[Rfam]
Rfam assigns this 300-nucleotide sequence from Pelusios castaneus to the family "Metazoan signal recognition particle RNA". The signal recognition particle (SRP) is a universally conserved ribonucleoprotein. By type it is a non-coding RNA gene. Pairs were carried over by alignment from the consensus structure, which is taken from published work. The match comes from Rfam's covariance-model search (264 bits).

RNA sequence: GCUGGGCAUGGUGGCUUGUGCCUGUAAUCCCAGCUUCUGGGGAGGCUGAGACCAGUGAAUCCCUUGAGCUCAGGAGUUCUAGGCUGUAGUGUGCUAUGUUGAGUGGGCAUCCACACUAAGUUCGGCAUCAAUAUGGUGAUCCUGAGGGAGCUUCGGGUCACCAGGUUGCCUAAGGAGGGGUGAACCGGCCCAGGUUGGAAACAGAGCAGGUCAAAGCUCCCGUGCUGAUCAGUAGUGGGAUUGUGCCUGUGAAUAGCCACUGCAGCGUAGCCUGGGCAAGACAGUGAGACAUGGUCUCCU
Numbered sequence: 001g002c003u004g005g006g007c008a009u010g011g012u013g014g015c016u017u018g019u020g021c022c023u024g025u026a027a028u029c030c031c032a033g034c035u036u037c038u039g040g041g042g043a044g045g046c047u048g049a050g051a052c053c054a055g056u057g058a059a060u061c062c063c064u065u066g067a068g069c070u071c072a073g074g075a076g077u078u079c080u081a082g083g084c085u086g087u088a089g090u091g092u093g094c095u096a097u098g099u100u101g102a103g104u105g106g107g108c109a110u111c112c113a114c115a116c117u118a119a120g121u122u123c124g125g126c127a128u129c130a131a132u133a134u135g136g137u138g139a140u141c142c143u144g145a146g147g148g149a150g151c152u153u154c155g156g157g158u159c160a161c162c163a164g165g166u167u168g169c170c171u172a173a174g175g176a177g178g179g180g181u182g183a184a185c186c187g188g189c190c191c192a193g194g195u196u197g198g199a200a201a202c203a204g205a206g207c208a209g210g211u212c213a214a215a216g217c218u219c220c221c222g223u224g225c226u227g228a229u230c231a232g233u234a235g236u237g238g239g240a241u242u243g244u245g246c247c248u249g250u251g252a253a254u255a256g257c258c259a260c261u262g263c264a265g266c267g268u269a270g271c272c273u274g275g276g277c278a279a280g281a282c283a284g285u286g287a288g289a290c291a292u293g294g295u296c297u298c299c300u
Base pairs, nucleotide, nucleotide: 001046002045003044004023005022006021007020008019009018010017011016028043029042030041048298049297050296051295052294053293054292060287061286063284064283068277069276070275071274072273073272074271079270080269081268083266084265085264086263087262088261089260090259091258093257094256095255096254097253099251103250104249105248106247107246108245109244110243111239112238114237115236116235117234118233120230122228123227124226125225126224127223128222129168130167131166132165134163135162136161137160138159139158140157141156142155144153145152146151169175170174177220178219179218180217181216187212188211189210190209195204196203197202
On this family, see Rosenblad et al., RNA Biol 2009: "Kinship in the SRP RNA family".